[Rfam]
RNA sequence: ACACGAGAAGGGAGGUGGUUCGGCAGAUGUAUGGAAACCGGACGCGUGAGGUGGCUGCGGGCUAGCGGCCCGUCACCACACCAUGUGCGGUGCCGGACCAGUGCGCCAUGAAGGCGUGCAGCCGGCCCGAUCCCACAGCAGUCACCCGACCCGCGGGCUGCCGGUACGUCCGGCCGGCUCCUCCUCGGAGGAACCCAGCCCGCGGGUCGUCUGCG
Numbered sequence: 001a002c003a004c005g006a007g008a009a010g011g012g013a014g015g016u017g018g019u020u021c022g023g024c025a026g027a028u029g030u031a032u033g034g035a036a037a038c039c040g041g042a043c044g045c046g047u048g049a050g051g052u053g054g055c056u057g058c059g060g061g062c063u064a065g066c067g068g069c070c071c072g073u074c075a076c077c078a079c080a081c082c083a084u085g086u087g088c089g090g091u092g093c094c095g096g097a098c099c100a101g102u103g104c105g106c107c108a109u110g111a112a113g114g115c116g117u118g119c120a121g122c123c124g125g126c127c128c129g130a131u132c133c134c135a136c137a138g139c140a141g142u143c144a145c146c147c148g149a150c151c152c153g154c155g156g157g158c159u160g161c162c163g164g165u166a167c168g169u170c171c172g173g174c175c176g177g178c179u180c181c182u183c184c185u186c187g188g189a190g191g192a193a194c195c196c197a198g199c200c201c202g203c204g205g206g207u208c209g210u211c212u213g214c215g
Stems, first nucleotide, its partner, number of pairs: 015058005060127004065122002068119002071116001073114002147209013160178006
RNA: Actinobacteria sRNA Ms_IGR-5
Organism: Streptomyces actinomycinicus